[Rfam]
RNA sequence: AAAGUCCUUCGGGGUUGGGUGUAAUUCCCUACCGGCGGUGAUCAAUUAUUUGUAGUCCGCGACCCAAUGAUCAACUGGUCAUUGGUUGAUUCGGUGAGAUUCCGAAACCGACAGUUACAGUCUGGAUGGGAGAAGGAAGUG
Numbered sequence: 001a002a003a004g005u006c007c008u009u010c011g012g013g014g015u016u017g018g019g020u021g022u023a024a025u026u027c028c029c030u031a032c033c034g035g036c037g038g039u040g041a042u043c044a045a046u047u048a049u050u051u052g053u054a055g056u057c058c059g060c061g062a063c064c065c066a067a068u069g070a071u072c073a074a075c076u077g078g079u080c081a082u083u084g085g086u087u088g089a090u091u092c093g094g095u096g097a098g099a100u101u102c103c104g105a106a107a108c109c110g111a112c113a114g115u116u117a118c119a120g121u122c123u124g125g126a127u128g129g130g131a132g133a134a135g136g137a138a139g140u141g
Stems, first nucleotide, its partner, number of pairs: 005137006017029003031121002033110002035060004055108002064085002090106005112124003

Record summary:
This 141-nucleotide sequence from Tepidibacillus fermentans belongs to the Rfam family "FMN riboswitch aptamer (RFN element)". It scores 122 bits against the family's covariance model. Pairs were carried over by alignment from the consensus structure, which is taken from published work.